[Rfam]
RNA sequence: CCGUCCGGGUCGUGGGACAGCCCGCGCCGCACCGGCUCCGGCCGAUACCCUUGGCCCGUGCACCGGCCCCCGCGGGCCGCGCAUAGCCGACAGCCGUCGCACACGAGGGAGUAUCCCCAUG
Number, nucleotide and partner (000 for none) at each position: 001c000002c000003g000004u000005c000006c000007g000008g000009g000010u000011c000012g000013u000014g000015g000016g000017a000018c000019a000020g000021c000022c000023c000024g000025c000026g000027c000028c000029g000030c000031a000032c000033c000034g000035g000036c000037u000038c000039c000040g000041g000042c000043c000044g000045a000046u000047a000048c000049c000050c000051u000052u000053g000054g000055c000056c000057c000058g000059u083060g082061c081062a000063c000064c000065g078066g077067c076068c075069c000070c000071c000072g000073c000074g000075g068076g067077c066078c065079g000080c000081g061082c060083a059084u000085a000086g100087c099088c000089g098090a097091c096092a000093g000094c000095c000096g091097u090098c089099g087100c086101a000102c000103a000104c000105g000106a000107g000108g000109g000110a000111g000112u000113a000114u000115c000116c000117c000118c000119a000120u000121g000
Shown here is a 121-nucleotide RNA sequence from Streptomyces sp. CNQ-509, a member of the family "Streptomyces-metH RNA". Taxonomically the source falls in Streptomyces (Bacteria, Bacillati, Actinomycetes, Streptomycetaceae). It scores 69 bits against the family's covariance model. The family's RNA type in Rfam is small RNA.